[Rfam]
RNA sequence: CCUCCCGUUCCCUCGGGAGUAGCCUAACCGGACGUGCGAAGGCGGUAACGCCUUGGUGCGAAGCUUCGGUGACAACGUACCGGCCUCCCAAAGGGGACAGUCAGACCGCGAGGAAUGACUGAGGCCUGCGAGCAUCACGCGGACCCCGGG
Dot-bracket structure: .((((((......))))))........((((((((((.((((((....)))))).)))))....)))))................((((....))))((((....((....))....))))....(((((.......)))))........

Rfam assigns this 150-nucleotide sequence from Leptospirillum rubarum to the family "Group II catalytic intron D1-D4-7". The family has 244 seed sequences and 1,296 matches in Rfam 15.1. From the family's description: Group II introns are found in rRNA, tRNA and mRNA of organelles in fungi, plants and protists, and also in mRNA in bacteria. The sequence is in the family's curated seed alignment. The pairing is the family consensus, mapped onto this sequence. A reference for the family is Bonen and Vogel (2001), "The ins and outs of group II introns", Trends Genet. Gene Ontology term of the family: Group II intron splicing.